[Rfam]
Record summary:
The record is a 118-nucleotide RNA sequence from Hordeum vulgare, which matches "Small nucleolar RNA snoR104" in Rfam. Pairs were carried over by alignment from the consensus structure, which was predicted with WAR. It scores 52 bits against the family's covariance model. The family has 8 seed sequences and 612 matches in Rfam 15.1.
RNA sequence: GUGCUGGCAUUUAAAGAACAACAUGCCUACCUGAUACAAUCUUCCUAAAGUAAAAAAAAUUAUUUCCUGCUUGUGGUGUCGUUUGGAAGUUCUGCAAGUCCGAAUUGAGCAAACAUCC
Numbered sequence: 001g002u003g004c005u006g007g008c009a010u011u012u013a014a015a016g017a018a019c020a021a022c023a024u025g026c027c028u029a030c031c032u033g034a035u036a037c038a039a040u041c042u043u044c045c046u047a048a049a050g051u052a053a054a055a056a057a058a059a060u061u062a063u064u065u066c067c068u069g070c071u072u073g074u075g076g077u078g079u080c081g082u083u084u085g086g087a088a089g090u091u092c093u094g095c096a097a098g099u100c101c102g103a104a105u106u107g108a109g110c111a112a113a114c115a116u117c118c
Stems, first nucleotide, its partner, number of pairs: 001032001003030001006028001007026004012021001069099008078090002

Lineage of the source: Eukaryota > Petrosaviidae > Pooideae > Hordeum > Hordeum vulgare.